[Rfam]
The family of this 118-nucleotide RNA is "Betaproteobacteria-1 RNA". The family's consensus secondary structure is taken from published work. It is one of the family's seed sequences. By type it is a small RNA.
RNA sequence: CGUCUAACUGUUCGGUCACCAUACGGCAGGGUUAGAGGAAAUGGACUACUGUGGGAAAGCUCUGAGAGAGUCCUAGGGGUGGCGAAGCUAGUGCCCCAUGAGCGCAAGACUGGCGGGU
Numbered sequence: 001c002g003u004c005u006a007a008c009u010g011u012u013c014g015g016u017c018a019c020c021a022u023a024c025g026g027c028a029g030g031g032u033u034a035g036a037g038g039a040a041a042u043g044g045a046c047u048a049c050u051g052u053g054g055g056a057a058a059g060c061u062c063u064g065a066g067a068g069a070g071u072c073c074u075a076g077g078g079g080u081g082g083c084g085a086a087g088c089u090a091g092u093g094c095c096c097c098a099u100g101a102g103c104g105c106a107a108g109a110c111u112g113g114c115g116g117g118u
Base pairs, nucleotide, nucleotide: 001038003036004035005034006033007032008031009030026052027051028050029049043073044072045071046070047069059103060102061101062100076097077096078095079094080093087114088113089112090111091110092109